[Rfam]
RNA sequence: UAAAAGCCUGCGUUAAGGAUUGAAACGGCAUCCUUUUUUUGUUUUUCUCAAAAAAAGAUAUAGUGAAAAGCCUGUUAAAAC
Numbered sequence: 001u002a003a004a005a006g007c008c009u010g011c012g013u014u015a016a017g018g019a020u021u022g023a024a025a026c027g028g029c030a031u032c033c034u035u036u037u038u039u040u041g042u043u044u045u046u047c048u049c050a051a052a053a054a055a056a057g058a059u060a061u062a063g064u065g066a067a068a069a070g071c072c073u074g075u076u077a078a079a080a081c
Stems, first nucleotide, its partner, number of pairs: 016073003020069002025064002030059003036054006
RNA: Flavo-1 RNA